[Rfam]
RNA sequence: AAGACUAUACUUUCAGGGAUCAUUUCUAUAGUGCGUAACUGAGAAAUGCGUUUCGAAAGUGUUUGGUCUCGCUACCCACGAUGAUGAGUCAAUGCAUCCCCUUCUGAGCGCGAAGCGGAUAGAGAAUAUUGAUUUAUCAACCGUUCUCUAUCAUUGAUGACCGUUCCGCUUCUGCAAAGAAUGUGGAGGAAGGGGCUGCGUUCAGAGUGGU
Numbered sequence: 001a002a003g004a005c006u007a008u009a010c011u012u013u014c015a016g017g018g019a020u021c022a023u024u025u026c027u028a029u030a031g032u033g034c035g036u037a038a039c040u041g042a043g044a045a046a047u048g049c050g051u052u053u054c055g056a057a058a059g060u061g062u063u064u065g066g067u068c069u070c071g072c073u074a075c076c077c078a079c080g081a082u083g084a085u086g087a088g089u090c091a092a093u094g095c096a097u098c099c100c101c102u103u104c105u106g107a108g109c110g111c112g113a114a115g116c117g118g119a120u121a122g123a124g125a126a127u128a129u130u131g132a133u134u135u136a137u138c139a140a141c142c143g144u145u146c147u148c149u150a151u152c153a154u155u156g157a158u159g160a161c162c163g164u165u166c167c168g169c170u171u172c173u174g175c176a177a178a179g180a181a182u183g184u185g186g187a188g189g190a191a192g193g194g195g196c197u198g199c200g201u202u203c204a205g206a207g208u209g210g211u
Base pairs, nucleotide, nucleotide: 002040003039006035008033009032010031011030015027016026017025018024049065050064054061076210077209078208079207094199095198096197098195099194100193101192102191103190104189105188108164109163110162118152119151120150121149124146125145126144127143129140130139131138132137167185168184170181171180172179173178
Small nucleolar RNA U3: a 211-nucleotide sequence from Conger conger. Pairs were carried over by alignment from the consensus structure, which is taken from published work. The organism belongs to Conger, within Eukaryota. Rfam links the family to the GO terms RNA processing and nucleolus. By type it is a C/D-box small nucleolar RNA. About the family: Small nucleolar RNAs (snoRNAs) are involved in the processing and modification of rRNA in the nucleolus. There are two main classes of snoRNAs: the box C/D class, and the box H/ACA class. U3 snoRNA is a member of the box C/D class. Indeed, the box C/D element is a subset of the six short sequence elements found in all U3 snoRNAs, namely boxes A, A', B, C, C', and D. The U3 snoRNA secondary structure is characterised by a small 5' domain (with boxes A and A'), and a larger 3' domain (with boxes B, C, C', and D), the two domains being linked by a single-stranded hinge. Boxes B and C form the B/C motif, which appears to be exclusive to U3 snoRNAs, and boxes C' and D form the C'/D motif. The latter is functionally similar to the C/D motifs found in other snoRNAs. The 5' domain and the hinge region act as a pre-rRNA-binding domain. The 3' domain has conserved protein-binding sites. Both the box B/C and box C'/D motifs are sufficient for nuclear retention of U3 snoRNA. The box C'/D motif is also necessary for nucleolar localisation, stability and hyper-methylation of U3 snoRNA. Both box B/C and C'/D motifs are involved in specific protein interactions and are necessary for the rRNA processing functions of U3 snoRNA.